[Rfam]
Rfam assigns this 64-nucleotide sequence from Sulfurirhabdus autotrophica to the family "Betaproteobacteria toxic small RNA". A reference for the family is Kimelman et al. (2012), "A vast collection of microbial genes that are toxic to bacteria", Genome Res. The source organism's lineage runs through Bacteria, Pseudomonadati, Nitrosomonadales, Sulfuricellaceae and Sulfurirhabdus. The base pairs follow the family's consensus structure, which was predicted with WAR. From the family's description: Overexpression in amino aid rich medium attenuates growth, suggesting role in repressing amino acid intake and metabolism.
RNA sequence: UGUCUCCUCCAUCCCCCUUCUUUGGUGGAUUUUAGCGCAACCUAAAUAGGUUGCGCUUUUUUUU
Numbered sequence: 001u002g003u004c005u006c007c008u009c010c011a012u013c014c015c016c017c018u019u020c021u022u023u024g025g026u027g028g029a030u031u032u033u034a035g036c037g038c039a040a041c042c043u044a045a046a047u048a049g050g051u052u053g054c055g056c057u058u059u060u061u062u063u064u
Base pairs, nucleotide, nucleotide: 008029009028010027011026012025013024034057035056036055037054038053039052040051041050